The family of this 88-nucleotide RNA sequence from Saimiri boliviensis is "mir-626 microRNA precursor family". For this family Rfam cites "Genome-wide comparative analysis of microRNAs in three non-human primates" (Brameier, BMC Res Notes, 2010).

RNA sequence: UUGUCUUAUUUGUGAGCUGAAGAGUUAGUAUUUUUGCGCAAUCUGAGUGAUCUCAGCUGUCUGAAAAUGUCUUCAAUUUUAAAGGCUU
Numbered sequence: 001u002u003g004u005c006u007u008a009u010u011u012g013u014g015a016g017c018u019g020a021a022g023a024g025u026u027a028g029u030a031u032u033u034u035u036g037c038g039c040a041a042u043c044u045g046a047g048u049g050a051u052c053u054c055a056g057c058u059g060u061c062u063g064a065a066a067a068u069g070u071c072u073u074c075a076a077u078u079u080u081a082a083a084g085g086c087u088u
Stems, first nucleotide, its partner, number of pairs: 003086005011081002014078002018075006029069008038060003043056004